This 103-nucleotide RNA sequence from Zea mays belongs to the Rfam family "Small nucleolar RNA Z221/R21b". The family's consensus secondary structure was predicted with WAR. The organism belongs to Zea, within Eukaryota. Rfam links the family to the GO terms nucleolus and RNA processing. Rfam classes the family as a C/D-box small nucleolar RNA.
[Rfam]
RNA sequence: UAAGGGCAAUGAUGAUGCGAAAGUCAUGCACCACUCUGAAUGAGAGGAUUUUCUCUCUUUGGGCUGACAAGCAAACUUUCUACCCAUUUUUUGGCGAAACUUA
Number, nucleotide and partner (000 for none) at each position: 001u103002a102003a101004g100005g000006g000007c000008a000009a000010u000011g000012a000013u000014g000015a000016u000017g000018c000019g000020a000021a000022a000023g000024u000025c000026a000027u000028g000029c000030a000031c000032c000033a000034c000035u000036c000037u000038g000039a000040a000041u000042g000043a000044g000045a000046g000047g000048a000049u000050u000051u000052u000053c000054u000055c000056u000057c000058u000059u000060u000061g000062g000063g000064c000065u000066g000067a000068c000069a000070a000071g000072c000073a000074a000075a000076c000077u000078u000079u000080c000081u000082a000083c000084c000085c000086a000087u000088u000089u000090u000091u000092u000093g000094g000095c000096g000097a000098a000099a000100c004101u003102u002103a001